[Rfam]
RNA: Mammalian CPEB3 ribozyme
RNA sequence: AGAGGUUGCAAGUUUGAGGCCAUAGCAGAAGCACUCAUGGUGCGGCCAUGUCAGAUUCUAAUAAUUCUGUGAAUUCUGUU
Numbered sequence: 001a002g003a004g005g006u007u008g009c010a011a012g013u014u015u016g017a018g019g020c021c022a023u024a025g026c027a028g029a030a031g032c033a034c035u036c037a038u039g040g041u042g043c044g045g046c047c048a049u050g051u052c053a054g055a056u057u058c059u060a061a062u063a064a065u066u067c068u069g070u071g072a073a074u075u076c077u078g079u080u
Stems, first nucleotide, its partner, number of pairs: 013048001018047004024080007031043003052069004057064001